[Rfam]
RNA sequence: GUUCCACGGAGGGAGAGCGGGCUGGGCAGAGGGUGGACUGUGUGGUGUUACGGUGCUGCGUGGACGGCGCGUGUGGUCUGCGUGAGUGGACGCGCGAAUGUGUGUGUGCAUGAUGGCGUGCAAGGCGAGUGUGUGCGCCCGUCCCUGAGCCCCUCCCCCGCCUACACCUUGAUCUUAUUUGAUCGGGUUGUGACCCUAGCCCCGCCGGGCCGACCCGAGAUGAAAAGCUCCCCUCCUGCGAAGCCCCUCCUCGAGGCGCUGUGCAGCGAGGCCCCUUGGGCGGCGGCAACGCCGCGGUCCCGGAACCGGUUUUACGGGGCCCGGCGCUCGGAAGUGAUGAAUUGAUCAGAUAGACGAGGCCGGGCUUGUCCCGGGCCACUGAUUAUCGAGGCGAUUCUGAUCUGA
Numbered sequence: 001g002u003u004c005c006a007c008g009g010a011g012g013g014a015g016a017g018c019g020g021g022c023u024g025g026g027c028a029g030a031g032g033g034u035g036g037a038c039u040g041u042g043u044g045g046u047g048u049u050a051c052g053g054u055g056c057u058g059c060g061u062g063g064a065c066g067g068c069g070c071g072u073g074u075g076g077u078c079u080g081c082g083u084g085a086g087u088g089g090a091c092g093c094g095c096g097a098a099u100g101u102g103u104g105u106g107u108g109c110a111u112g113a114u115g116g117c118g119u120g121c122a123a124g125g126c127g128a129g130u131g132u133g134u135g136c137g138c139c140c141g142u143c144c145c146u147g148a149g150c151c152c153c154u155c156c157c158c159c160g161c162c163u164a165c166a167c168c169u170u171g172a173u174c175u176u177a178u179u180u181g182a183u184c185g186g187g188u189u190g191u192g193a194c195c196c197u198a199g200c201c202c203c204g205c206c207g208g209g210c211c212g213a214c215c216c217g218a219g220a221u222g223a224a225a226a227g228c229u230c231c232c233c234u235c236c237u238g239c240g241a242a243g244c245c246c247c248u249c250c251u252c253g254a255g256g257c258g259c260u261g262u263g264c265a266g267c268g269a270g271g272c273c274c275c276u277u278g279g280g281c282g283g284c285g286g287c288a289a290c291g292c293c294g295c296g297g298u299c300c301c302g303g304a305a306c307c308g309g310u311u312u313u314a315c316g317g318g319g320c321c322c323g324g325c326g327c328u329c330g331g332a333a334g335u336g337a338u339g340a341a342u343u344g345a346u347c348a349g350a351u352a353g354a355c356g357a358g359g360c361c362g363g364g365c366u367u368g369u370c371c372c373g374g375g376c377c378a379c380u381g382a383u384u385a386u387c388g389a390g391g392c393g394a395u396u397c398u399g400a401u402c403u404g405a
Stems, first nucleotide, its partner, number of pairs: 052151003056147001057073006088103001090101003104138003109133004114127002178226003183218004188213003192210001195209003199205002250303001255300002258298003263295002266292003271287003274283002306324004310319003329404004339397006358377004363372002
Shown here is a 405-nucleotide RNA from Ursus americanus, a member of the family "Small Cajal body-specific RNA 2". The literature on the family includes a 2004 paper in Curr Biol by Tycowski et al., "Guide RNAs with 5' caps and novel box C/D snoRNA-like domains for modification of snRNAs in metazoa". Rfam 15.1 lists 612 matches to the family in 498 species. The family's consensus secondary structure is taken from published work. Gene Ontology terms of the family: nucleolus and RNA processing.